[Rfam]
RNA sequence: AUGUACACUGAGUGGCCAGAUUAUUAUGAUCUAAACACAUAAUAAUCUGGCCACUCAGUGUGUGU
Dot-bracket structure: ...((((((((((((((.((((((((((.........)))))))))).))))))))))))))...
Notes:
The record is a 65-nucleotide sequence from Pipistrellus kuhlii, which matches "mir-9256 microRNA precursor family" in Rfam. The base pairs follow the family's consensus structure, which was predicted with RNAalifold. The organism belongs to Pipistrellus, within Eukaryota.